Rfam assigns this 102-nucleotide RNA sequence from Wolinella succinogenes to the family "Guanidine-I riboswitch aptamer". Rfam's curators put it in the seed alignment. Rfam's curators write: This family represents a conserved RNA structure found upstream of the ykkC and yxkD genes in Bacillus subtilis and related genes in other bacteria. The function of this family is unclear although it has been suggested that it may function to switch on efflux pumps and detoxification systems in response to harmful environmental molecules. The organism belongs to Wolinella, within Bacteria. The family has 100 seed sequences and 1,509 matches in Rfam 15.1.
[Rfam]
RNA sequence: CGAACAGAUGGCUAGGGUUCCGAUGAUCGCUUGAUCAUGCUGGUCCGAGAGCUAUCGGCCUCUUGAGUAGAGGUUACACGGAGGGAUAAAAGCCCGGGAGGU
Dot-bracket structure: ......((((((..((...(((((((((....)))))).).)).))....))))))(((((((.....))))))).(.[...(((.......))).)..]..